Shown here is a 242-nucleotide RNA from Streptomyces sp. CC53, a member of the family "Streptomyces sRNA 4677".
Nucleotides: 242
Stems, first nucleotide, its partner, number of pairs: 007224003011221001017077001020074001080095006112152001114142002180216005186210001191205004227240005
Number, partner (000 for none) and nucleotide at each position: 001000c002000g003000u004000c005000c006000c007224g008223g009222u010000c011221g012000c013000c014000c015000g016000g017077g018000a019000c020074a021000u022000c023000u024000u025000c026000c027000a028000g029000g030000g031000a032000a033000a034000g035000a036000a037000c038000g039000a040000a041000g042000g043000a044000g045000g046000u047000a048000a049000g050000g051000c052000a053000c054000c055000u056000u057000c058000c059000c060000c061000a062000c063000c064000c065000a066000c067000c068000c069000c070000u071000a072000c073000c074020u075000a076000c077017c078000c079000g080095u081094c082093a083092c084091u085090c086000a087000c088000a089000c090085g091084a092083g093082u094081g095080g096000a097000u098000u099000g100000u101000c102000c103000a104000a105000c106000u107000g108000a109000g110000g111000u112152c113000a114142g115141g116000g117000u118000u119000c120000g121000g122000a123000u124000g125000g126000u127000u128000g129000g130000g131000c132000g133000g134000c135000a136000u137000a138000u139000g140000c141115u142114c143000g144000c145000a146000c147000c148000g149000a150000g151000a152112g153000c154000g155000a156000a157000g158000c159000c160000a161000a162000c163000c164000a165000c166000c167000g168000c169000a170000g171000a172000c173000a174000u175000g176000c177000g178000g179000c180216g181215g182214c183213c184212c185000c186210c187000a188000g189000c190000c191205a192204g193203g194202a195000c196000u197000a198000c199000c200000g201000a202194u203193c204192c205191u206000u207000g208000g209000a210186g211000g212184g213183g214182g215181c216180c217000u218000g219000a220000c221011c222009a223008c224007u225000c226000a227240g228239g229238a230237a231236u232000g233000g234000a235000c236231g237230u238229u239228c240227c241000c242000a

Overview: It scores 52 bits against the family's covariance model. Rfam's curators write: Located in the intergenic region between anti-sigma factor SCO4677 gene and a putative regulatory protein gene SCO4676. scr4677 expression requires the SCO4677 activity and scr4677 sRNA itself seem to affect the levels of the SCO4676-associated transcripts. The family's RNA type in Rfam is small RNA. Lineage of the source: Bacteria > Bacillati > Actinomycetota > Streptomycetaceae > Streptomyces.